[Rfam]
Shown here is a 63-nucleotide sequence from Vicugna pacos, a member of the family "U7 small nuclear RNA".
The family's consensus secondary structure was predicted with PFOLD.
A search with the family's covariance model found it, with a score of 59 bits.
RNA sequence: AAGUGUUAACAGGUCUUUUAAAAUUUGUCUAGCCGGUUUUCUGGUCUGCCCUGGAAAGCCCCC
Numbered sequence: 001a002a003g004u005g006u007u008a009a010c011a012g013g014u015c016u017u018u019u020a021a022a023a024u025u026u027g028u029c030u031a032g033c034c035g036g037u038u039u040u041c042u043g044g045u046c047u048g049c050c051c052u053g054g055a056a057a058g059c060c061c062c063c
Stems, first nucleotide, its partner, number of pairs: 035060010